[Rfam]
RNA sequence: CGAGUGGCCCGGGCGACCGCGUCCGAUCCUCACGGGUCGGCCGAGGAAAGUCCGGACUCCACGAGCCAGGGUGGUUGCUAACGACAACCGGUCGCGAGGCCAGGGAAAGUGCCACAGAGAACAGACCGCCUCCCACGUCCUCGGGCGUGGGCGGCAAGGGUGAAACGGUGCGGUAAGAGCGCACCGCGGGUCCUGGUGACAGGCCCGGCACGGUAAACCCCACCCGGAGAAAGACCGCAUAGGGGGGCGUUUGGCGCGGCUCGCGUCGCCCCCGGGUAGGUCGUUCGAGGCCGCGCGCGAGUGCGGCCCUAGAGAAAUGGUCGCCCCCGCCGCUCCGGUUCGCCGGGGCGCGCGGGAACAGGAUCCGGCUUACGAGGGCCGCUCGCAUC
Number, nucleotide and partner (000 for none) at each position: 001c385002g384003a383004g382005u381006g380007g379008c378009c377010c376011g373012g325013g324014c323015g322016a321017c320018c319019g000020c043021g042022u000023c040024c039025g038026a037027u036028c035029c000030u000031c000032a000033c000034g000035g028036g027037u026038c025039g024040g023041c000042c021043g020044a000045g000046g000047a000048a371049a370050g369051u000052c368053c367054g366055g365056a364057c229058u228059c227060c226061a000062c000063g000064a000065g261066c000067c259068a000069g225070g224071g223072u222073g221074g088075u087076u086077g085078c000079u000080a000081a000082c000083g000084a000085c077086a076087a075088c074089c103090g101091g100092u099093c098094g000095c000096g000097a000098g093099g092100c091101c090102a000103g089104g220105g219106a000107a000108a000109g218110u217111g214112c213113c212114a000115c000116a000117g000118a000119g000120a000121a000122c000123a000124g000125a000126c159127c158128g155129c154130c153131u000132c151133c150134c149135a148136c147137g146138u145139c144140c000141u000142c000143g000144g139145g138146c137147g136148u135149g134150g133151g132152c000153g130154g129155c128156a000157a000158g127159g126160g000161u000162g000163a000164a000165a000166c000167g185168g184169u183170g182171c181172g180173g000174u000175a000176a000177g000178a000179g000180c172181g171182c170183a169184c168185c167186g209187c207188g206189g205190g204191u000192c203193c202194u201195g200196g000197u000198g000199a000200c195201a194202g193203g192204c190205c189206c188207g187208g000209c186210a000211c000212g113213g112214u111215a000216a000217a110218c109219c105220c104221c073222a072223c071224c070225c069226g060227g059228a058229g057230a000231a000232a000233g282234a281235c280236c279237g000238c000239a000240u000241a000242g000243g273244g272245g271246g270247g269248c268249g000250u000251u000252u000253g267254g266255c265256g264257c263258g000259g067260c000261u065262c000263g257264c256265g255266u254267c253268g248269c247270c246271c245272c244273c243274g000275g000276g000277u000278a000279g236280g235281u234282c233283g000284u000285u000286c000287g000288a000289g308290g307291c306292c305293g304294c303295g302296c301297g000298c000299g000300a000301g296302u295303g294304c293305g292306g291307c290308c289309c000310u000311a000312g000313a000314g000315a000316a000317a000318u000319g018320g017321u016322c015323g014324c013325c012326c000327c000328c000329g000330c000331c000332g000333c000334u000335c000336c000337g000338g000339u000340u000341c000342g000343c000344c000345g000346g000347g000348g000349c000350g000351c000352g000353c000354g000355g000356g000357a000358a000359c000360a000361g000362g000363a000364u056365c055366c054367g053368g052369c050370u049371u048372a000373c011374g000375a000376g010377g009378g008379c007380c006381g005382c004383u003384c002385g001386c000387a000388u000389c000
Shown here is a 389-nucleotide RNA from Rohdeia mirabilis, a member of the family "Bacterial RNase P class A". NCBI's taxonomy places the organism under Bacteria, Pseudomonadati, Planctomycetota, Planctomycetia, Rohdeia.